[Rfam]
RNA sequence: UUUAGUGUGAAUUGAUUUAUGUUUGGAUACAUUAACUUAAAAGUGAUUCUUACAAAUUUAUGUUGUUUGGAUAG
Numbered sequence: 001u002u003u004a005g006u007g008u009g010a011a012u013u014g015a016u017u018u019a020u021g022u023u024u025g026g027a028u029a030c031a032u033u034a035a036c037u038u039a040a041a042a043g044u045g046a047u048u049c050u051u052a053c054a055a056a057u058u059u060a061u062g063u064u065g066u067u068u069g070g071a072u073a074g
Base pairs, nucleotide, nucleotide: 011061012060014058015057016056017055018054021053022052025049026048027047028046030045031044032043033042